[Rfam]
RNA sequence: CUGUAAAGUAAUAAUGUGAUUGACGGAAUAUCAUGUUAUCACACCUUGUUAUAGACACCUUAUUACCAUAUCAUCAUCUUCAAUGAUGUGACAAUGUUGUGUGACUGAUUGGACAUGAUGGUGUAAUAUUGUGUCUAUCACAUUAUUAUUUAACGGAA
Numbered sequence: 001c002u003g004u005a006a007a008g009u010a011a012u013a014a015u016g017u018g019a020u021u022g023a024c025g026g027a028a029u030a031u032c033a034u035g036u037u038a039u040c041a042c043a044c045c046u047u048g049u050u051a052u053a054g055a056c057a058c059c060u061u062a063u064u065a066c067c068a069u070a071u072c073a074u075c076a077u078c079u080u081c082a083a084u085g086a087u088g089u090g091a092c093a094a095u096g097u098u099g100u101g102u103g104a105c106u107g108a109u110u111g112g113a114c115a116u117g118a119u120g121g122u123g124u125a126a127u128a129u130u131g132u133g134u135c136u137a138u139c140a141c142a143u144u145a146u147u148a149u150u151u152a153a154c155g156g157a158a
Stems, first nucleotide, its partner, number of pairs: 001156004006151015022135004027130005033124009045112002048109004055102004070087005

Rfam assigns this 158-nucleotide sequence from Glycine max to the family "MIR4371 microRNA precursor family".
Its family is annotated with miRNA-mediated post-transcriptional gene silencing and RISC complex in the Gene Ontology.
The family is grouped with related families in Rfam's "MIR4387 microRNA precursor clan".